Notes: A member of the RNA family "L13-Bacteroidia ribosomal protein leader", 76 nucleotides long. Pairs were carried over by alignment from the consensus structure, which is taken from published work. By type it is a cis-regulatory leader. It is one of the family's seed sequences.
RNA sequence: GGGGAUACACUUAGAGUCCCCUGGACUGGUGUGUUAAUAGCAAUGUCCUGUGGCCGGGAUUUGCGGUUAGAGAAUC
Numbered sequence: 001g002g003g004g005a006u007a008c009a010c011u012u013a014g015a016g017u018c019c020c021c022u023g024g025a026c027u028g029g030u031g032u033g034u035u036a037a038u039a040g041c042a043a044u045g046u047c048c049u050g051u052g053g054c055c056g057g058g059a060u061u062u063g064c065g066g067u068u069a070g071a072g073a074a075u076c
Stems, first nucleotide, its partner, number of pairs: 001021006034070005040064003045060005